[Rfam]
RNA sequence: AGACCAGAAGCACGGACGUUGUCCUGUUUCUACCUCCCUGUUGGACUUGGCCGAGCUUCUGCUCGGCCUUUUUU
Numbered sequence: 001a002g003a004c005c006a007g008a009a010g011c012a013c014g015g016a017c018g019u020u021g022u023c024c025u026g027u028u029u030c031u032a033c034c035u036c037c038c039u040g041u042u043g044g045a046c047u048u049g050g051c052c053g054a055g056c057u058u059c060u061g062c063u064c065g066g067c068c069u070u071u072u073u074u
Stems, first nucleotide, its partner, number of pairs: 006031007049068008
Singlet oxygen resistance RNA X: a 74-nucleotide RNA sequence from Meridianimarinicoccus roseus. The source organism's lineage runs through Bacteria, Pseudomonadati, Pseudomonadota, Alphaproteobacteria and Meridianimarinicoccus. SorX (RSs2461)like SorY is a singlet oxygen induced sRNA that counteracts oxidative stress by targeting mRNA for a transporter in Rhodobacter.